[Rfam]
RNA sequence: CGAAAAGUUUGGCAAAACCGGCGAAAGCCGGCGACGCAAAGCUAAAGGGGCUAAGGCGGGUAACCGCUAUGCCAGCCAGCUGCCGGG
Number, nucleotide and partner (000 for none) at each position: 001c000002g000003a000004a000005a000006a000007g000008u000009u000010u000011g000012g037013c036014a000015a000016a000017a000018c031019c030020g029021g028022c027023g000024a000025a000026a000027g022028c021029c020030g019031g018032c000033g000034a000035c000036g013037c012038a000039a000040a081041g080042c079043u078044a000045a000046a000047g077048g076049g073050g072051c071052u000053a000054a000055g000056g067057c066058g065059g064060g000061u000062a000063a000064c059065c058066g057067c056068u000069a000070u000071g051072c050073c049074a000075g000076c048077c047078a043079g042080c041081u040082g000083c000084c000085g000086g000087g000
Rfam assigns this 87-nucleotide RNA sequence from Carboxydothermus hydrogenoformans to the family "c-di-GMP-I riboswitch aptamer". For this family Rfam cites "Identification of 22 candidate structured RNAs in bacteria using the CMfinder comparative genomics pipeline" (Weinberg et al., Nucleic Acids Res, 2007).